The record is a 111-nucleotide RNA sequence from Brassica napus, which matches "Small nucleolar RNA Z152/R70/R12/" in Rfam.
A reference for the family is Barneche et al. (2001), "Identification of 66 box C/D snoRNAs in Arabidopsis thaliana: extensive gene duplications generated multiple isoforms predicting new ribosomal RNA 2'-O-methylation sites", J Mol Biol.
The family's consensus secondary structure was predicted with PFOLD.
A search with the family's covariance model found it, with a score of 98 bits.
The source organism's lineage runs through Eukaryota, Magnoliopsida, Mesangiospermae, Pentapetalae and Brassica.
RNA sequence: GAUGCGAUGAUGAUGAAACUGCACGGAGGUGCACGAAGGGCAGUGGACAAAACAUAAACUGUUUUGCCGUGAGCUCUCUUAAUUAAACGACUUCUCCUUCCACUGAGCAUC
Number, nucleotide and partner (000 for none) at each position: 001g111002a110003u109004g108005c107006g000007a000008u000009g000010a000011u000012g000013a000014u000015g000016a000017a000018a000019c000020u000021g000022c000023a000024c000025g000026g000027a000028g000029g000030u000031g000032c000033a000034c000035g000036a000037a000038g000039g000040g000041c000042a000043g000044u000045g000046g000047a000048c000049a000050a000051a000052a000053c000054a000055u000056a000057a000058a000059c000060u000061g000062u000063u000064u000065u000066g000067c000068c000069g000070u000071g000072a000073g000074c000075u000076c000077u000078c000079u000080u000081a000082a000083u000084u000085a000086a000087a000088c000089g000090a000091c000092u000093u000094c000095u000096c000097c000098u000099u000100c000101c000102a000103c000104u000105g000106a000107g005108c004109a003110u002111c001